Notes
The family of this 108-nucleotide RNA from Zizania palustris is "Small nucleolar RNA Z118/Z121/Z120". Lineage of the source: Eukaryota > Streptophyta > Spermatophyta > Oryzeae > Zizania. The literature on the family includes a 2003 paper in Nucleic Acids Res by Chen et al., "The high diversity of snoRNAs in plants: identification and comparative study of 120 snoRNA genes from Oryza sativa". The match comes from Rfam's covariance-model search (109 bits). It is annotated as a C/D-box small nucleolar RNA.
RNA sequence: UGUUUGCCAUGAUGAUUCCUACAAGGACGGUAUCUGAUUUAGGCGGCUCUUCAAAGAGCACUCCUCACGUGAUUAUACCCACAACUGAUCAGAGAUUCUGAGCAAACA
Numbered sequence: 001u002g003u004u005u006g007c008c009a010u011g012a013u014g015a016u017u018c019c020u021a022c023a024a025g026g027a028c029g030g031u032a033u034c035u036g037a038u039u040u041a042g043g044c045g046g047c048u049c050u051u052c053a054a055a056g057a058g059c060a061c062u063c064c065u066c067a068c069g070u071g072a073u074u075a076u077a078c079c080c081a082c083a084a085c086u087g088a089u090c091a092g093a094g095a096u097u098c099u100g101a102g103c104a105a106a107c108a
Stems, first nucleotide, its partner, number of pairs: 001108007039067001041065003